The family of this 135-nucleotide RNA from Mola mola is "Small nucleolar RNA SNORA5". Rfam describes the family as follows. ACA5 is a member of the H/ACA class of snoRNA that guide the sites of modification of uridines to pseudouridines. Rfam links the family to the GO terms RNA processing and nucleolus. NCBI's taxonomy places the organism under Eukaryota, Metazoa, Osteoglossocephalai, Tetraodontiformes, Mola. The family has 6 seed sequences and 2,226 matches in Rfam 15.1. Rfam classes the family as an H/ACA-box small nucleolar RNA. The family's consensus secondary structure was predicted with RNAfold.
RNA sequence: UGCAGCCUUGUCAAAUUCAGUGUGUUCUUUACAGUGGACUUCACUGGCCAAAAUGGUUGCCACAGAGACUGUAGUUCAUGGGCCCCACCUCCUUGCAUCCUAGGAUGUGGGGAUAAAUAUGUACUGCAGACAAAU
Numbered sequence: 001u002g003c004a005g006c007c008u009u010g011u012c013a014a015a016u017u018c019a020g021u022g023u024g025u026u027c028u029u030u031a032c033a034g035u036g037g038a039c040u041u042c043a044c045u046g047g048c049c050a051a052a053a054u055g056g057u058u059g060c061c062a063c064a065g066a067g068a069c070u071g072u073a074g075u076u077c078a079u080g081g082g083c084c085c086c087a088c089c090u091c092c093u094u095g096c097a098u099c100c101u102a103g104g105a106u107g108u109g110g111g112g113a114u115a116a117a118u119a120u121g122u123a124c125u126g127c128a129g130a131c132a133a134a135u
Stems, first nucleotide, its partner, number of pairs: 002060004018046005024039004071127005076121001083112005